[Rfam]
The record is a 70-nucleotide sequence, which matches "Fluoride riboswitch aptamer (crcB RNA motif)" in Rfam.

Nucleotides: 070
Stems, first nucleotide, its partner, number of pairs: 010026004016061006037050005
Number, partner (000 for none) and nucleotide at each position: 001000a002000a003000c004000a005000a006000a007000u008000a009000a010026g011025g012024u013023g014000a015000u016061g017060a018059g019058g020057u021056u022000c023013c024012a025011c026010c027000u028000a029000u030000u031000u032000a033000a034000c035000u036000g037050c038049c039048a040047g041046u042000g043000a044000u045000u046041a047040c048039u049038g050037g051000a052000u053000g054000a055000u056021g057020a058019c059018u060017u061016c062000u063000a064000u065000u066000u067000u068000u069000a070000a
The match comes from Rfam's covariance-model search (49 bits).